[Rfam]
RNA: DUF3268 RNA
RNA sequence: UAAAGAGGCUUGCGCCCAGGCUCUCGGUACUUCGGAAGAGCUCCCGGAGUUUGACCCCAUCAGGUGGAUAGGGGAACCGUUACGGACGCAUUGCGACGUCUCUAACGACGCAGGCC
Numbered sequence: 001u002a003a004a005g006a007g008g009c010u011u012g013c014g015c016c017c018a019g020g021c022u023c024u025c026g027g028u029a030c031u032u033c034g035g036a037a038g039a040g041c042u043c044c045c046g047g048a049g050u051u052u053g054a055c056c057c058c059a060u061c062a063g064g065u066g067g068a069u070a071g072g073g074g075a076a077c078c079g080u081u082a083c084g085g086a087c088g089c090a091u092u093g094c095g096a097c098g099u100c101u102c103u104a105a106c107g108a109c110g111c112a113g114g115c116c
Base pairs, nucleotide, nucleotide: 007116008115009114010113011112012111013110014109016107025079026078027077028076029050030049031048032047033046034045035044055073056072057071059069060068061067084101085100086099087095